[Rfam]
The family of this 82-nucleotide sequence from Leptobrachium leishanense is "mir-187 microRNA precursor family". The source organism's lineage runs through Eukaryota, Eumetazoa, Batrachia, Pelobatoidea and Leptobrachium.
RNA sequence: UUGGACAUACCCUUGGUUACAACACAGGACAUGGGAGCUAUACAUAGAUGCUCGUGUCUUGUGUUGCAGCCAGAGGUGGCCA
Numbered sequence: 001u002u003g004g005a006c007a008u009a010c011c012c013u014u015g016g017u018u019a020c021a022a023c024a025c026a027g028g029a030c031a032u033g034g035g036a037g038c039u040a041u042a043c044a045u046a047g048a049u050g051c052u053c054g055u056g057u058c059u060u061g062u063g064u065u066g067c068a069g070c071c072a073g074a075g076g077u078g079g080c081c082a
Stems, first nucleotide, its partner, number of pairs: 011075001015071004020066011032054004